[Rfam]
RNA sequence: AUUUUCUAAAACAACAAAAGCCCUACCUCUCAUUUGUCCUUGCGGCUCCGAUGACCGCGCCAGCGUGAAUCAGAAUUACUUGAAAAAU
Numbered sequence: 001a002u003u004u005u006c007u008a009a010a011a012c013a014a015c016a017a018a019a020g021c022c023c024u025a026c027c028u029c030u031c032a033u034u035u036g037u038c039c040u041u042g043c044g045g046c047u048c049c050g051a052u053g054a055c056c057g058c059g060c061c062a063g064c065g066u067g068a069a070u071c072a073g074a075a076u077u078a079c080u081u082g083a084a085a086a087a088u
Stems, first nucleotide, its partner, number of pairs: 034068003039063002041059005047053001
About this RNA
The record is an 88-nucleotide sequence from Fontibacillus panacisegetis, which matches "BsrC" in Rfam. Rfam 15.1 lists 572 matches to the family in 553 species. Rfam classes the family as a small RNA. On this family, see Saito et al., Gene 2008: "Novel small RNA-encoding genes in the intergenic regions of Bacillus subtilis". Rfam's curators write: The 301 nucleotide sequence from Kouji Nakamura has been trimmed to a highly conserved ~85 nucleotide long core to form this family.